Rfam assigns this 172-nucleotide sequence from Mycobacterium leprae to the family "M-box riboswitch aptamer (ykoK leader)". Gene Ontology terms of the family: regulation of gene expression and response to magnesium ion. The organism belongs to Mycobacterium, within Bacteria. From the family's description: M-box riboswitch, also know as ykoK leader is described as a metaloregulatory RNA that sense divalent metals and function as a genetic control element of genes related to divalent metal transport in bacteria. It was first reported upstream of the B.subtilis ykoK gene and genes with related functions in other bacteria. For this family Rfam cites "New RNA motifs suggest an expanded scope for riboswitches in bacterial genetic control" (Barrick et al., Proc Natl Acad Sci U S A, 2004). The sequence is in the family's curated seed alignment.

RNA sequence: CAAGCACCUCGGUAGGUGAGGCUUCUGCAUGGAUAUAGGCCACCGAUCCCGGACGUCGAGAGAUGCAUCGGGUCAAGACAACUCCCAGGGUUGGGUCCAAGUCCAAGUGGUUUCUGGACGUUGGUCCAGAUAUGCUGUGCAGUGCCUAAGCUCCGGCGAUGAGGGGAUGCGU
Numbered sequence: 001c002a003a004g005c006a007c008c009u010c011g012g013u014a015g016g017u018g019a020g021g022c023u024u025c026u027g028c029a030u031g032g033a034u035a036u037a038g039g040c041c042a043c044c045g046a047u048c049c050c051g052g053a054c055g056u057c058g059a060g061a062g063a064u065g066c067a068u069c070g071g072g073u074c075a076a077g078a079c080a081a082c083u084c085c086c087a088g089g090g091u092u093g094g095g096u097c098c099a100a101g102u103c104c105a106a107g108u109g110g111u112u113u114c115u116g117g118a119c120g121u122u123g124g125u126c127c128a129g130a131u132a133u134g135c136u137g138u139g140c141a142g143u144g145c146c147u148a149a150g151c152u153c154c155g156g157c158g159a160u161g162a163g164g165g166g167a168u169g170c171g172u
Stems, first nucleotide, its partner, number of pairs: 007166004011157001015152003020146003025142008039111005045074005054065004081102003085095002113130005